[Rfam]
RNA sequence: UGCUGGUCCCCUCGCAACAAUACACCGUGAAUCUGGUCAGGUCCGGAAGGAAGCAGCCACAGCGGUCGACUUGUGUGCCGAGGUGCGGCUGGUAGAG
Numbered sequence: 001u002g003c004u005g006g007u008c009c010c011c012u013c014g015c016a017a018c019a020a021u022a023c024a025c026c027g028u029g030a031a032u033c034u035g036g037u038c039a040g041g042u043c044c045g046g047a048a049g050g051a052a053g054c055a056g057c058c059a060c061a062g063c064g065g066u067c068g069a070c071u072u073g074u075g076u077g078c079c080g081a082g083g084u085g086c087g088g089c090u091g092g093u094a095g096a097g
Stems, first nucleotide, its partner, number of pairs: 004091005010083005015075001017074004024066005034059004042051003
RNA: Bacterial small signal recognition particle RNA